[Rfam]
RNA: glmS glucosamine-6-phosphate activated ribozyme aptamer
RNA sequence: ACGGAAUCAGAAGCGCCAGAACUCGCGCGGCCCUUCCAGCGCGAGUUGACGAGGACAAGGAAAAUCGAAACUUCGGCGGAUGCCUUGCGGUAUGGUACUACCGGAAAUGCUGAAAAAAACAGGGAGUGAUCCCCGAACAAAUUCAGCAGGGUACCUGAAA
Numbered sequence: 001a002c003g004g005a006a007u008c009a010g011a012a013g014c015g016c017c018a019g020a021a022c023u024c025g026c027g028c029g030g031c032c033c034u035u036c037c038a039g040c041g042c043g044a045g046u047u048g049a050c051g052a053g054g055a056c057a058a059g060g061a062a063a064a065u066c067g068a069a070a071c072u073u074c075g076g077c078g079g080a081u082g083c084c085u086u087g088c089g090g091u092a093u094g095g096u097a098c099u100a101c102c103g104g105a106a107a108u109g110c111u112g113a114a115a116a117a118a119a120c121a122g123g124g125a126g127u128g129a130u131c132c133c134c135g136a137a138c139a140a141a142u143u144c145a146g147c148a149g150g151g152u153a154c155c156u157g158a159a160a
Stems, first nucleotide, its partner, number of pairs: 020047008056087005065076004088103005108148005120135001122133004